[Rfam]
RNA sequence: AUAAGAUAAAAAUAAAUGACUCGUAUAUUUGACGGUAAUAUGGUCCGUAAGUUUCUACCUGCUAACCUUAAAUUAGUAGACUACGAGGUAUAGUUUAAAGAAU
Numbered sequence: 001a002u003a004a005g006a007u008a009a010a011a012a013u014a015a016a017u018g019a020c021u022c023g024u025a026u027a028u029u030u031g032a033c034g035g036u037a038a039u040a041u042g043g044u045c046c047g048u049a050a051g052u053u054u055c056u057a058c059c060u061g062c063u064a065a066c067c068u069u070a071a072a073u074u075a076g077u078a079g080a081c082u083a084c085g086a087g088g089u090a091u092a093g094u095u096u097a098a099a100g101a102a103u
Base pairs, nucleotide, nucleotide: 018089020087021086022085023084024083025082029050030049032048033047034046035045059079060078061077062076063075064074065073
A member of the RNA family "Purine riboswitch aptamer" from Terrisporobacter othiniensis, 103 nucleotides long. The source organism's lineage runs through Bacteria, Bacillati, Bacillota, Peptostreptococcaceae and Terrisporobacter. Gene Ontology term of the family: purine nucleobase biosynthetic process. The family's consensus secondary structure is taken from published work.